[Rfam]
Source information: The family of this 170-nucleotide sequence from Parageobacillus caldoxylosilyticus is "Group II catalytic intron D1-D4-3".

RNA sequence: UCUGUGGUGACGCGGAAUAUGAAGGAAGCGUGCGGUAGACUUCCGCUCUGAGGAACACGAACUUUAUACAAAGCUGGGCAUCAUCAGGAGGAGUUUGUUAGACAAAACAAGGACUUUUCUACUAAAGGUGAUACUGAGUAAAUGAAGCACAUGGACAGAAGAAGUCUGUC
Numbered sequence: 001u002c003u004g005u006g007g008u009g010a011c012g013c014g015g016a017a018u019a020u021g022a023a024g025g026a027a028g029c030g031u032g033c034g035g036u037a038g039a040c041u042u043c044c045g046c047u048c049u050g051a052g053g054a055a056c057a058c059g060a061a062c063u064u065u066a067u068a069c070a071a072a073g074c075u076g077g078g079c080a081u082c083a084u085c086a087g088g089a090g091g092a093g094u095u096u097g098u099u100a101g102a103c104a105a106a107a108c109a110a111g112g113a114c115u116u117u118u119c120u121a122c123u124a125a126a127g128g129u130g131a132u133a134c135u136g137a138g139u140a141a142a143u144g145a146a147g148c149a150c151a152u153g154g155a156c157a158g159a160a161g162a163a164g165u166c167u168g169u170c
Stems, first nucleotide, its partner, number of pairs: 001016006028170001032166001036162001042155004049149002062147006073139003077135002080132004087115002093108004
The pairing is the family consensus, mapped onto this sequence.